[Rfam]
Source information
FMN riboswitch aptamer (RFN element): a 116-nucleotide sequence from Clostridium senegalense. The match comes from Rfam's covariance-model search (119 bits). Pairs were carried over by alignment from the consensus structure, which is taken from published work.
RNA sequence: AAUUAUCUUCAGGGCAAGGUGAAAUUCCUUACCGGCGGUAAAGCCCGCGAGCUAUUUUAGCAUGAUUUGGUGAAAUUCCAAGGCCGACAGUAAAGUCUGGAUGAAAGAAGAGAAAA
Number, nucleotide and partner (000 for none) at each position: 001a000002a000003u114004u113005a000006u111007c110008u109009u108010c107011a000012g000013g000014g000015c000016a000017a029018g028019g027020u000021g000022a000023a000024a000025u000026u000027c019028c018029u017030u000031a096032c095033c086034g085035g048036c047037g046038g045039u000040a000041a000042a000043g084044c083045c038046c037047g036048c035049g000050a000051g000052c000053u060054a000055u000056u000057u000058u000059a000060g053061c000062a000063u000064g000065a000066u082067u081068u080069g079070g078071u000072g000073a000074a000075a000076u000077u000078c070079c069080a068081a067082g066083g044084c043085c034086g033087a000088c099089a098090g097091u000092a000093a000094a000095g032096u031097c090098u089099g088100g000101a000102u000103g000104a000105a000106a000107g010108a009109a008110g007111a006112g000113a004114a003115a000116a000